[Rfam]
RNA: ZMP/ZTP riboswitch aptamer (pfl RNA motif)
Organism: Pseudonocardia sp. HH130630-07
RNA sequence: CACGCAGGUCGUGACUGGCGCAUACAGAUGGACAACCAUCGGGGAGCGACCUCACCGAGCACGUGUGCCGCGCGCCUGGGCCUUCUCC
Numbered sequence: 001c002a003c004g005c006a007g008g009u010c011g012u013g014a015c016u017g018g019c020g021c022a023u024a025c026a027g028a029u030g031g032a033c034a035a036c037c038a039u040c041g042g043g044g045a046g047c048g049a050c051c052u053c054a055c056c057g058a059g060c061a062c063g064u065g066u067g068c069c070g071c072g073c074g075c076c077u078g079g080g081c082c083u084u085c086u087c088c
Stems, first nucleotide, its partner, number of pairs: 006052007015043002017076005028039004065083001067081003